This 95-nucleotide RNA sequence from Phenylobacterium zucineum belongs to the Rfam family "Repression of heat shock gene expression (ROSE) element". Rfam links the family to the GO terms regulation of translation and response to temperature stimulus. Lineage of the source: Bacteria > Pseudomonadota > Caulobacterales > Phenylobacterium > Phenylobacterium zucineum. This family represents a 5' UTR cis-regulatory element found in heat shock mRNAs and is known as the ROSE (repression of heat shock gene expression) element. The ROSE element is a negative regulator of heat shock gene expression. The secondary structure is thought to be regulated by temperature. This regulation blocks access to the ribosome binding site under normal conditions. It is annotated as an RNA thermoregulator. Pairs were carried over by alignment from the consensus structure, which is taken from published work. A search with the family's covariance model found it, with a score of 69 bits.
[Rfam]
RNA sequence: CCGGGCGCCGCCAUGGGCCCGGCAGACGGUCGCGGGGACCCUCCCCGCGGCCCUCUCGUCACCAUGUUGCUUUUCGGAGGAUAUGGUCAUGAGAA
Numbered sequence: 001c002c003g004g005g006c007g008c009c010g011c012c013a014u015g016g017g018c019c020c021g022g023c024a025g026a027c028g029g030u031c032g033c034g035g036g037g038a039c040c041c042u043c044c045c046c047g048c049g050g051c052c053c054u055c056u057c058g059u060c061a062c063c064a065u066g067u068u069g070c071u072u073u074u075c076g077g078a079g080g081a082u083a084u085g086g087u088c089a090u091g092a093g094a095a
Base pairs, nucleotide, nucleotide: 001022002021003020004019005018006017008016009015029051030050031049032048033047034046035045036044037043038042055093056092057091058090059089062086063085064084065083066082067081068080070079071078072077